Small nucleolar RNA SNORA57: a 149-nucleotide sequence from Carlito syrichta. U99 belongs to the H/ACA class of snoRNAs which are thought to guide the sites of modification of uridines to pseudouridines, the target for this family is unknown. Its family is annotated with nucleolus and RNA processing in the Gene Ontology. NCBI's taxonomy places the organism under Eukaryota, Opisthokonta, Deuterostomia, Gnathostomata, Carlito. The family's consensus secondary structure was predicted with PFOLD. It scores 138 bits against the family's covariance model. On this family, see Vitali et al., Nucleic Acids Res 2003: "Identification of 13 novel human modification guide RNAs".
RNA sequence: CUUCCUUUUCUUGAUGGGGACUGGUUGUGUAGUCCCACUCCCCACUAUGUACAGAGGCAGAGGGAAAGGGUUCUGGCCCCCUUGGUGUCAUGUCUUUGGUGCCAGCAGCUUCCUGUCCACCGGUUCUAUCCUCAAGCACCGAGACACCU
Numbered sequence: 001c002u003u004c005c006u007u008u009u010c011u012u013g014a015u016g017g018g019g020a021c022u023g024g025u026u027g028u029g030u031a032g033u034c035c036c037a038c039u040c041c042c043c044a045c046u047a048u049g050u051a052c053a054g055a056g057g058c059a060g061a062g063g064g065a066a067a068g069g070g071u072u073c074u075g076g077c078c079c080c081c082u083u084g085g086u087g088u089c090a091u092g093u094c095u096u097u098g099g100u101g102c103c104a105g106c107a108g109c110u111u112c113c114u115g116u117c118c119a120c121c122g123g124u125u126c127u128a129u130c131c132u133c134a135a136g137c138a139c140c141g142a143g144a145c146a147c148c149u
Base pairs, nucleotide, nucleotide: 001057002056003055004054015044016043017042018041019040020039022037023036024035083141084140085139086138087137088136102123103122105120108117